RNA sequence: CCCGCCAACUCUGGAGAGCGGCGCCCGGUGCGCCCACCGAAGGGGCUAACGGCGCCAUGCGCCGGAAAAUCUCAGGUUGCCGGACAGAGGGGUGUGA
Number, nucleotide and partner (000 for none) at each position: 001c000002c000003c000004g000005c000006c092007a000008a000009c089010u088011c087012u086013g085014g000015a000016g000017a000018g000019c000020g034021g033022c032023g031024c000025c000026c000027g000028g000029u000030g000031c023032g022033c021034c020035c000036a077037c076038c075039g073040a072041a000042g000043g071044g070045g000046c000047u000048a000049a000050c064051g063052g062053c061054g060055c059056c000057a000058u000059g055060c054061g053062c052063c051064g050065g000066a000067a000068a000069a000070u044071c043072u040073c039074a000075g038076g037077u036078u000079g000080c000081c000082g000083g000084a000085c013086a012087g011088a010089g009090g000091g000092g006093u000094g000095u000096g000097a000

This 97-nucleotide RNA from Gulbenkiania mobilis belongs to the Rfam family "Glycine riboswitch aptamer". A search with the family's covariance model found it, with a score of 46 bits. Taxonomically the source falls in Gulbenkiania (Bacteria, Pseudomonadati, Betaproteobacteria, Chromobacteriaceae).